[Rfam]
The family of this 376-nucleotide sequence from Periweissella fabalis is "Bacterial RNase P class B". Its family is annotated with tRNA processing, dimeric ribonuclease P complex and ribonuclease P activity in the Gene Ontology. By type it is a ribozyme. It scores 332 bits against the family's covariance model. Ribonuclease P (RNase P) is a ubiquitous endoribonuclease, found in archaea, bacteria and eukarya as well as chloroplasts and mitochondria.

RNA sequence: AAUUUCUAGUAAUCGCGCAUAAGUUAACUUAUGUGAGGAAAGUCCAUGCUCGCACAAGCUGCGAUGCUUGUAGUGUUUGUGCUCGGCGAAAAAAUAAACCGGGGCACCAUUUAUGGUGACGGCGGAAAAAACGGCUAAGGCUUUGGCUAUGCCCAAGUAUUCCUGAAAGUGCCACAGUGACGAUGCUGAUUUGGAAACGAAUCAGGUGGAACGCGGUAAACCCCUCAAGCGGGAAACCCAAACAUAUGGUAGGGGAGCUCGGCCUAGUGAAUUGAAACGAUGGUCGUGUUAGUAAUAAUAAUUACUAGAAGAUAGAUGAUUACUACUUGCUUAAUUAUGCAUGAAGUUAAGUGAGAACAUAACGUGGCUUACAGAA
Numbered sequence: 001a002a003u004u005u006c007u008a009g010u011a012a013u014c015g016c017g018c019a020u021a022a023g024u025u026a027a028c029u030u031a032u033g034u035g036a037g038g039a040a041a042g043u044c045c046a047u048g049c050u051c052g053c054a055c056a057a058g059c060u061g062c063g064a065u066g067c068u069u070g071u072a073g074u075g076u077u078u079g080u081g082c083u084c085g086g087c088g089a090a091a092a093a094a095u096a097a098a099c100c101g102g103g104g105c106a107c108c109a110u111u112u113a114u115g116g117u118g119a120c121g122g123c124g125g126a127a128a129a130a131a132c133g134g135c136u137a138a139g140g141c142u143u144u145g146g147c148u149a150u151g152c153c154c155a156a157g158u159a160u161u162c163c164u165g166a167a168a169g170u171g172c173c174a175c176a177g178u179g180a181c182g183a184u185g186c187u188g189a190u191u192u193g194g195a196a197a198c199g200a201a202u203c204a205g206g207u208g209g210a211a212c213g214c215g216g217u218a219a220a221c222c223c224c225u226c227a228a229g230c231g232g233g234a235a236a237c238c239c240a241a242a243c244a245u246a247u248g249g250u251a252g253g254g255g256a257g258c259u260c261g262g263c264c265u266a267g268u269g270a271a272u273u274g275a276a277a278c279g280a281u282g283g284u285c286g287u288g289u290u291a292g293u294a295a296u297a298a299u300a301a302u303u304a305c306u307a308g309a310a311g312a313u314a315g316a317u318g319a320u321u322a323c324u325a326c327u328u329g330c331u332u333a334a335u336u337a338u339g340c341a342u343g344a345a346g347u348u349a350a351g352u353g354a355g356a357a358c359a360u361a362a363c364g365u366g367g368c369u370u371a372c373a374g375a376a
Stems, first nucleotide, its partner, number of pairs: 004376003008324007016035006040370003044367005049233005054071006077228003081224001082103005104120001105118005121223002124163004133153003139148003169221002171217003186205008237254003258288001260286005289309001290307007326355011